[Rfam]
RNA sequence: UGAAAGCAAAUAAAUAGCGCUCGUAUAAUCUCAGGGAUAUGGCCUGAAAGUCUCUACCAGAUAACCGUAAAUUAUCUGACUACGGGGGAAAGUGCGCCUAGG
Number, nucleotide and partner (000 for none) at each position: 001u000002g000003a000004a000005a000006g000007c000008a000009a000010a000011u000012a000013a000014a000015u000016a000017g000018c088019g000020c086021u085022c084023g083024u082025a081026u000027a000028a000029u049030c000031u047032c046033a045034g044035g043036g000037a000038u000039a000040u000041g000042g000043c035044c034045u033046g032047a031048a000049a029050g000051u000052c000053u000054c000055u000056a000057c000058c078059a077060g076061a075062u074063a073064a072065c000066c000067g000068u000069a000070a000071a000072u064073u063074a062075u061076c060077u059078g058079a000080c000081u025082a024083c023084g022085g021086g020087g000088g018089a000090a000091a000092g000093u000094g000095c000096g000097c000098c000099u000100a000101g000102g000
A member of the RNA family "Purine riboswitch aptamer" from Dethiobacter sp., 102 nucleotides long. Gene Ontology term of the family: purine nucleobase biosynthetic process. Lineage of the source: Bacteria > Bacillota > Dethiobacteria > Dethiobacteraceae > Dethiobacter. The match comes from Rfam's covariance-model search (88 bits). Rfam's curators write: Riboswitches are metabolite binding domains within certain messenger RNAs that serve as precision sensors for their corresponding targets.